Overview:
Shown here is a 70-nucleotide sequence, a member of the family "DUF3800-IX RNA". Rfam classes the family as a small RNA. Rfam describes the family as follows. Actinobacteria, Firmicutes (1 example), Nitrospirae, Proteobacteria, Verrucomicrobia (1 example).
RNA sequence: GACCUCAACCCGAAUUGUCACCGUAUGGUGCGCGUGUCCCGAUACAUCGGGACUAGGGCUUGGGUUUUUA
Numbered sequence: 001g002a003c004c005u006c007a008a009c010c011c012g013a014a015u016u017g018u019c020a021c022c023g024u025a026u027g028g029u030g031c032g033c034g035u036g037u038c039c040c041g042a043u044a045c046a047u048c049g050g051g052a053c054u055a056g057g058g059c060u061u062g063g064g065u066u067u068u069u070a
Stems, first nucleotide, its partner, number of pairs: 001066004006062003009058003016034003019030004036053005